RNA sequence: GGAUGAGAGAUACACCCCGCCCCCGGGAGACCGUGGGCGGAAUCCAGGCCGGGGCCUCCCCAGCUUCGACCUGGUCGUGCCCUCGCGCACACAACCGGAGCCUCCGGCUUCGAAUCUCCACCGAUCGGA
Numbered sequence: 001g002g003a004u005g006a007g008a009g010a011u012a013c014a015c016c017c018c019g020c021c022c023c024c025g026g027g028a029g030a031c032c033g034u035g036g037g038c039g040g041a042a043u044c045c046a047g048g049c050c051g052g053g054g055c056c057u058c059c060c061c062a063g064c065u066u067c068g069a070c071c072u073g074g075u076c077g078u079g080c081c082c083u084c085g086c087g088c089a090c091a092c093a094a095c096c097g098g099a100g101c102c103u104c105c106g107g108c109u110u111c112g113a114a115u116c117u118c119c120a121c122c123g124a125u126c127g128g129a
Base pairs, nucleotide, nucleotide: 004120005119007117009116010115017040018039019038020037021036022035024033025032026031044074045073046072047071048070050068051067052066053065054064055063077090078089079088080087096112097111098110099109100108101107102106121128122127

Shown here is a 129-nucleotide RNA sequence from Streptomyces sp. Root264, a member of the family "Streptomyces RNA 5676". Identified by deep sequencing of transcriptome at the end of exponential growth phase. The match comes from Rfam's covariance-model search (116 bits). Pairs were carried over by alignment from the consensus structure.